Shown here is a 60-nucleotide sequence from Leucobacter chromiisoli, a member of the family "msiK RNA".

[Rfam]
RNA sequence: AGCAAUUCGCUCUCACUACGGAUCGUCCGGCACGUACCUGCCGGUGGAACGAAAGGAAAA
Numbered sequence: 001a002g003c004a005a006u007u008c009g010c011u012c013u014c015a016c017u018a019c020g021g022a023u024c025g026u027c028c029g030g031c032a033c034g035u036a037c038c039u040g041c042c043g044g045u046g047g048a049a050c051g052a053a054a055g056g057a058a059a060a
Stems, first nucleotide, its partner, number of pairs: 008051002011049001013047003027044006
Pairs were carried over by alignment from the consensus structure, which is taken from published work.